Source information: A member of the RNA family "PreQ1 (pre queuosine) riboswitch aptamer" from Weizmannia acidilactici, 44 nucleotides long. A search with the family's covariance model found it, with a score of 42 bits. The literature on the family includes a 2004 paper in J Biol Chem by Reader et al., "Identification of four genes necessary for biosynthesis of the modified nucleoside queuosine". This family is a bacterial riboswitch that binds to the metabolite preQ1, an intermediate in the biosynthesis of the modified nucleoside queuosine from GTP. One example of this riboswitch is located in the leader of the Bacillus subtilis ykvJKLM (queCDEF) operon which encodes four genes necessary for queuosine production. PreQ1 binding to the riboswitch aptamer is thought to induce premature transcription termination within the leader to down-regulate expression of these genes. The organism belongs to Heyndrickxia, within Bacteria. Rfam links the family to the GO term queuosine biosynthetic process. The pairing is the family consensus, mapped onto this sequence.
RNA sequence: CCGGUGGAGGUUCUUAGCAACCCUCCCAAAAAAACUAAGAAAAC
Numbered sequence: 001c002c003g004g005u006g007g008a009g010g011u012u013c014u015u016a017g018c019a020a021c022c023c024u025c026c027c028a029a030a031a032a033a034a035c036u037a038a039g040a041a042a043a044c
Stems, first nucleotide, its partner, number of pairs: 006026005015037002
Dot-bracket structure: .....(((((....[[.....))))).........]].......